[Rfam]
RNA sequence: AAUAGUUAUAAGCAUGUUCCCGAUGGGAUUCACGUUUUGUGAAGCUGCCUUGUAACCAAUUUUUAAGGGGGAAAAUAAAUUG
Numbered sequence: 001a002a003u004a005g006u007u008a009u010a011a012g013c014a015u016g017u018u019c020c021c022g023a024u025g026g027g028a029u030u031c032a033c034g035u036u037u038u039g040u041g042a043a044g045c046u047g048c049c050u051u052g053u054a055a056c057c058a059a060u061u062u063u064u065a066a067g068g069g070g071g072a073a074a075a076u077a078a079a080u081u082g
Base pairs, nucleotide, nucleotide: 017073018072019071020070021069025050026049027048029043030042031041032040033039056068057067

A member of the RNA family "SAM-III riboswitch aptamer (SMK box)" from Fructilactobacillus florum, 82 nucleotides long. The match comes from Rfam's covariance-model search (67 bits). The base pairs follow the family's consensus structure, which is taken from published work. On this family, see Wang et al., Mol Cell 2008: "Riboswitches that sense S-adenosylhomocysteine and activate genes involved in coenzyme recycling".